[Rfam]
RNA sequence: CCGCUCUGGAAAGCGAUCCCGCUGCGCGGGAUCGGAUCGAGCAGCCGCCGAAGGCGGCGUGUCGAGAUCUCACACCGCGCACAGGCUCCGCCCAUGGUGAAAGCGACCACCCGUCGCGAAACUCUCAGGCACGAGGACAGAGGGGGAGU
Numbered sequence: 001c002c003g004c005u006c007u008g009g010a011a012a013g014c015g016a017u018c019c020c021g022c023u024g025c026g027c028g029g030g031a032u033c034g035g036a037u038c039g040a041g042c043a044g045c046c047g048c049c050g051a052a053g054g055c056g057g058c059g060u061g062u063c064g065a066g067a068u069c070u071c072a073c074a075c076c077g078c079g080c081a082c083a084g085g086c087u088c089c090g091c092c093c094a095u096g097g098u099g100a101a102a103g104c105g106a107c108c109a110c111c112c113g114u115c116g117c118g119a120a121a122c123u124c125u126c127a128g129g130c131a132c133g134a135g136g137a138c139a140g141a142g143g144g145g146g147a148g149u
Base pairs, nucleotide, nucleotide: 001145002144004142005141006140007139008138015088016087018085090130091129092128094125097124099122103117104116105115106114
RNA: Glycine riboswitch aptamer
Organism: Protaetiibacter sp. SSC-01